[Rfam]
RNA: Fluoride riboswitch aptamer (crcB RNA motif)
Organism: Paraburkholderia caffeinitolerans
RNA sequence: AUGGCCUGAGGAGAUGGCAUUCUCCUUUAACCGCUCAUGACGAGCCGAUGAUGCCUAUAACCCG
Numbered sequence: 001a002u003g004g005c006c007u008g009a010g011g012a013g014a015u016g017g018c019a020u021u022c023u024c025c026u027u028u029a030a031c032c033g034c035u036c037a038u039g040a041c042g043a044g045c046c047g048a049u050g051a052u053g054c055c056u057a058u059a060a061c062c063c064g
Stems, first nucleotide, its partner, number of pairs: 010025004016055006033045004